[Rfam]
RNA sequence: GUGAAGUGAUGAACAAGUUUAUCCAUUCUCUGAGUGUUGCUGCUCUGCCCUUCCUGCCGCAUUCAGAUUCCUGUUCUAGGGUCUUGAUGCCGUGUAGCCUCCAGGCACCUUUCAGCCUCCCAGUGUUCUGCUGGGGGCUGUGGGGAAGCUGGGCCAGCUGCCGGCAGGGCUGGGUGGAACAAGCAGGGCCAGGGCUGAGAGGCUCUGGCUCAGCCAAGAAGAAUGAAACUGUCUGAUCAU
Numbered sequence: 001g002u003g004a005a006g007u008g009a010u011g012a013a014c015a016a017g018u019u020u021a022u023c024c025a026u027u028c029u030c031u032g033a034g035u036g037u038u039g040c041u042g043c044u045c046u047g048c049c050c051u052u053c054c055u056g057c058c059g060c061a062u063u064c065a066g067a068u069u070c071c072u073g074u075u076c077u078a079g080g081g082u083c084u085u086g087a088u089g090c091c092g093u094g095u096a097g098c099c100u101c102c103a104g105g106c107a108c109c110u111u112u113c114a115g116c117c118u119c120c121c122a123g124u125g126u127u128c129u130g131c132u133g134g135g136g137g138c139u140g141u142g143g144g145g146a147a148g149c150u151g152g153g154c155c156a157g158c159u160g161c162c163g164g165c166a167g168g169g170c171u172g173g174g175u176g177g178a179a180c181a182a183g184c185a186g187g188g189c190c191a192g193g194g195c196u197g198a199g200a201g202g203c204u205c206u207g208g209c210u211c212a213g214c215c216a217a218g219a220a221g222a223a224u225g226a227a228a229c230u231g232u233c234u235g236a237u238c239a240u
Stems, first nucleotide, its partner, number of pairs: 010239003014235001017232002024225006030218002034214002039184003044178007052169004057163001059091001063087003066083002069081004094161005109144001113140005119135007186211008195202002
Rfam assigns this 240-nucleotide RNA from Varanus komodoensis to the family "Small nucleolar RNA SNORD17".
Rfam 15.1 lists 1,015 matches to the family in 568 species.
The base pairs follow the family's consensus structure, which was predicted with RNAalifold.
NCBI's taxonomy places the organism under Eukaryota, Metazoa, Vertebrata, Toxicofera, Varanus.
On this family, see Huttenhofer et al., EMBO J 2001: "RNomics: an experimental approach that identifies 201 candidates for novel, small, non-messenger RNAs in mouse".
From the family's description: The snoRNA HBI-43 belongs to the C/D family of snoRNAs, guiding 2'O-ribose methylation at position U3797 of the 28S rRNA. Pseudouridylation in position U3797 is predicted to be guided by the H/ACA snoRNA ACA48.